[Rfam]
RNA sequence: GCCAAGAUAGUUCAAUUGGUUAGAACAUUAAUUUCAUGCAUUAAUAAUGAGAAUUCAAAUUUCUCUCUUGGUA
Numbered sequence: 001g002c003c004a005a006g007a008u009a010g011u012u013c014a015a016u017u018g019g020u021u022a023g024a025a026c027a028u029u030a031a032u033u034u035c036a037u038g039c040a041u042u043a044a045u046a047a048u049g050a051g052a053a054u055u056c057a058a059a060u061u062u063c064u065c066u067c068u069u070g071g072u073a
Base pairs, nucleotide, nucleotide: 001072002071003070004069005068006067007066010026011025012024013023028044029043030042031041032040049065050064051063052062053061